[Rfam]
Nuclear RNase P: a 396-nucleotide RNA sequence from Mytilinidion resinicola. A search with the family's covariance model found it, with a score of 30 bits. Taxonomically the source falls in Mytilinidion (Eukaryota, Pezizomycotina, dothideomyceta, Dothideomycetes).
RNA sequence: ACCAACGCUGCGUUUCUUUGCUCACACACAGACACCUUGCGCCCUCGUGGCAGCUCGGUCCGUCCCUCUUUGCAAAUGAGAAAUUCGGAGUAAUCUUCACCCACCCACUGCCACCUUCCCGGCUUGCCGAGGAGCUCUGGCACAGCUGCCCGUGAGGGCCUGGCGUGACACUCACGCUUGCAUUUGGCAUCAGAAAAACCAGGGUCCACUCUGCCUCUGCGCUUGCGUGGUUGCGGAUGCGGUGUCCCUAUGGGAGCCUGUGCGAAGAUUGUGUGCAUACGUGCGACACUUUAGUGCAAUACGCGGCGUGCUGGACUUCGAGUAGCGGACACUAUCUGGGCAACUAGGUGUGCGAGUGAAAGAGGGAAGGCAUCAUUCGAUUCCGAUUACUCUGGU
Numbered sequence: 001a002c003c004a005a006c007g008c009u010g011c012g013u014u015u016c017u018u019u020g021c022u023c024a025c026a027c028a029c030a031g032a033c034a035c036c037u038u039g040c041g042c043c044c045u046c047g048u049g050g051c052a053g054c055u056c057g058g059u060c061c062g063u064c065c066c067u068c069u070u071u072g073c074a075a076a077u078g079a080g081a082a083a084u085u086c087g088g089a090g091u092a093a094u095c096u097u098c099a100c101c102c103a104c105c106c107a108c109u110g111c112c113a114c115c116u117u118c119c120c121g122g123c124u125u126g127c128c129g130a131g132g133a134g135c136u137c138u139g140g141c142a143c144a145g146c147u148g149c150c151c152g153u154g155a156g157g158g159c160c161u162g163g164c165g166u167g168a169c170a171c172u173c174a175c176g177c178u179u180g181c182a183u184u185u186g187g188c189a190u191c192a193g194a195a196a197a198a199c200c201a202g203g204g205u206c207c208a209c210u211c212u213g214c215c216u217c218u219g220c221g222c223u224u225g226c227g228u229g230g231u232u233g234c235g236g237a238u239g240c241g242g243u244g245u246c247c248c249u250a251u252g253g254g255a256g257c258c259u260g261u262g263c264g265a266a267g268a269u270u271g272u273g274u275g276c277a278u279a280c281g282u283g284c285g286a287c288a289c290u291u292u293a294g295u296g297c298a299a300u301a302c303g304c305g306g307c308g309u310g311c312u313g314g315a316c317u318u319c320g321a322g323u324a325g326c327g328g329a330c331a332c333u334a335u336c337u338g339g340g341c342a343a344c345u346a347g348g349u350g351u352g353c354g355a356g357u358g359a360a361a362g363a364g365g366g367a368a369g370g371c372a373u374c375a376u377u378c379g380a381u382u383c384c385g386a387u388u389a390c391u392c393u394g395g396u
Base pairs, nucleotide, nucleotide: 002395003394004393007307008306009305010304011303012302013301017076018075019074020073031064032063033062086385087384088383089382090381095267096266097265098264148159149158150157151156162178163177164176165175166174180263181262182261183260186258187257188256201249202248203247308373309372310371311370312369
The base pairs follow the family's consensus structure, which is taken from published work.